The family of this 64-nucleotide RNA from Drosophila yakuba is "Nanos 3' UTR translation control element".
[Rfam]
RNA sequence: AGGAGCAGAAGCUCUGGAAGCUUUUGUAGCGUUUAUAUAACAAGAAAUAUAUAUACGCCUUCCG
Numbered sequence: 001a002g003g004a005g006c007a008g009a010a011g012c013u014c015u016g017g018a019a020g021c022u023u024u025u026g027u028a029g030c031g032u033u034u035a036u037a038u039a040a041c042a043a044g045a046a047a048u049a050u051a052u053a054u055a056c057g058c059c060u061u062c063c064g
Stems, first nucleotide, its partner, number of pairs: 002063003007025007029058004034053006
Notes: The organism belongs to Sophophora, within Eukaryota. From the family's description: The Nanos protein in Drosophila is required for correct anterior/posterior patterning in the Drosophila embryo. The base pairs follow the family's consensus structure, which is taken from published work. A reference for the family is Crucs et al. (2000), "Overlapping but distinct RNA elements control repression and activation of nanos translation", Mol Cell.